[Rfam]
RNA sequence: UUUUUAGUGCAAAUAUGUCUUAUGCAAUAUUUGGGGCAUACUUAUACUAAAA
Number, nucleotide and partner (000 for none) at each position: 001u000002u000003u000004u000005u000006a048007g047008u046009g045010c000011a043012a042013a000014u040015a039016u038017g000018u036019c035020u034021u033022a031023u000024g000025c000026a000027a000028u000029a000030u000031u022032u000033g021034g020035g019036g018037c000038a016039u015040a014041c000042u012043u011044a000045u009046a008047c007048u006049a000050a000051a000052a000